[Rfam]
Source information
Rfam assigns this 92-nucleotide RNA from Streptomyces gardneri to the family "ZMP/ZTP riboswitch aptamer (pfl RNA motif)". Taxonomically the source falls in Streptomyces (Bacteria, Bacillati, Actinomycetes, Kitasatosporales).
RNA sequence: CGUGCCCGCUGCGACUGGCGAAGGUGGAUCACCACCGGGGAGCGGCAGUUGGUCGCUUUCCCGCGUGCGCGUCGACCGCCUGGGCGCCUGCG
Numbered sequence: 001c002g003u004g005c006c007c008g009c010u011g012c013g014a015c016u017g018g019c020g021a022a023g024g025u026g027g028a029u030c031a032c033c034a035c036c037g038g039g040g041a042g043c044g045g046c047a048g049u050u051g052g053u054c055g056c057u058u059u060c061c062c063g064c065g066u067g068c069g070c071g072u073c074g075a076c077c078g079c080c081u082g083g084g085c086g087c088c089u090g091c092g
Stems, first nucleotide, its partner, number of pairs: 003051002006048001008046005015039002017080004024035004069087005
Dot-bracket structure: ..((.(.(((((..(([[[[...((((....))))..))..))))).).)).................(((((...]]]]..))))).....